[Rfam]
RNA sequence: CUUAAGUGCAGCCAUGAGUUUCCGUGCCCAACUUUAUCGUUCGUCUUAUUUGAAAUUUUUUUAUGAUUAGUAUUUCUAUUGUUAUUAGAUGAUAAAACAUGAAUAGUACUUUAUGUGUGACUUAUGUUUUUAUUGUUUUUAAAAAAAAUUCAAAUAACACAGACGAUCAAAGUUGGGCACGGAAAAUCAUGGCUGCACUUAAA
Number, nucleotide and partner (000 for none) at each position: 001c000002u000003u000004a000005a000006g000007u000008g000009c000010a000011g000012c000013c000014a000015u000016g000017a000018g000019u000020u000021u000022c000023c000024g000025u000026g000027c177028c176029c175030a174031a173032c172033u171034u170035u169036a167037u166038c165039g164040u163041u162042c000043g160044u159045c000046u157047u156048a155049u154050u000051u000052g000053a000054a000055a000056u000057u000058u000059u000060u000061u000062u000063a000064u000065g000066a000067u000068u000069a000070g000071u000072a000073u000074u000075u000076c000077u000078a000079u000080u000081g000082u000083u000084a000085u000086u000087a000088g000089a000090u000091g000092a000093u000094a000095a000096a000097a000098c000099a000100u000101g000102a000103a000104u000105a000106g000107u000108a000109c000110u000111u000112u000113a000114u000115g000116u000117g000118u000119g000120a000121c000122u000123u000124a000125u000126g000127u000128u000129u000130u000131u000132a000133u000134u000135g000136u000137u000138u000139u000140u000141a000142a000143a000144a000145a000146a000147a000148a000149u000150u000151c000152a000153a000154a049155u048156a047157a046158c000159a044160c043161a000162g041163a040164c039165g038166a037167u036168c000169a035170a034171a033172g032173u031174u030175g029176g028177g027178c000179a000180c000181g000182g000183a000184a000185a000186a000187u000188c000189a000190u000191g000192g000193c000194u000195g000196c000197a000198c000199u000200u000201a000202a000203a000
The family of this 203-nucleotide sequence from Oryza sativa is "MIR812 microRNA precursor family". Rfam 15.1 lists 57,451 matches to the family in 24 species. The source organism's lineage runs through Eukaryota, Viridiplantae, Petrosaviidae, commelinids and Oryza. The family's consensus secondary structure was predicted with RNAalifold. Rfam links the family to the GO terms miRNA-mediated post-transcriptional gene silencing and RISC complex. It is one of the family's seed sequences.